A member of the RNA family "c-di-GMP-I riboswitch aptamer" from Acetohalobium arabaticum, 92 nucleotides long. The family's consensus secondary structure is taken from published work.
RNA sequence: AACUAGAAAGGGCACACUUAUCGAAAGGUAAGGCCGCAAAGCUUCAAAUCUACAGUGCAGUAUAAAGGCACUAUGAUAGUUGGGCUACCACA
Dot-bracket structure: ...........((...((((((....))))))...))..((((.((((((....((((.........))))...)))..)))))))......